[Rfam]
The family of this 78-nucleotide RNA sequence from Notechis scutatus is "Epstein-Barr virus stable intronic sequence RNA 2".
RNA sequence: CCUGCAGACUUUUUGGGGGAUUUUCUCAGGGUCUCUGCAGACAGAGACCCUGGGAAAAUCUCCAAAAAAGUCUGCAGG
Numbered sequence: 001c002c003u004g005c006a007g008a009c010u011u012u013u014u015g016g017g018g019g020a021u022u023u024u025c026u027c028a029g030g031g032u033c034u035c036u037g038c039a040g041a042c043a044g045a046g047a048c049c050c051u052g053g054g055a056a057a058a059u060c061u062c063c064a065a066a067a068a069a070g071u072c073u074g075c076a077g078g
Base pairs, nucleotide, nucleotide: 001078002077003076004075005074006073007072008071009070012067016063017062018061019060020059021058022057023056024055025054026053027052028051029050030049033046034045035044036043037042
The family's RNA type in Rfam is non-coding RNA gene. On this family, see Moss et al., RNA Biol 2014: "RNA families in Epstein-Barr virus". The organism belongs to Notechis, within Eukaryota. Rfam 15.1 lists 171 matches to the family in 47 species.